[Rfam]
RNA: TPP riboswitch aptamer (THI element)
Organism: Prevotellaceae bacterium HUN156
Nucleotides: 097
Stems, first nucleotide, its partner, number of pairs: 006085005011046004016040001017032005053078004059072004
Number, partner (000 for none) and nucleotide at each position: 001000g002000u003000g004000c005000u006085u007084a008083u009082c010081a011046a012045g013044g014043g015000g016040u017032g018031c019030u020029c021028a022000c023000a024000g025000u026000u027000g028021u029020g030019g031018g032017c033000u034000g035000a036000g037000a038000u039000g040016a041000u042000a043014c044013c045012c046011u047000u048000c049000a050000a051000a052000a053078c054077c055076u056075g057000a058000u059072c060071c061070g062069g063000a064000u065000a066000a067000u068000g069062c070061c071060g072059g073000c074000g075056u076055a077054g078053g079000g080000a081010u082009g083008a084007u085006a086000g087000a088000g089000a090000a091000u092000g093000c094000a095000u096000c097000g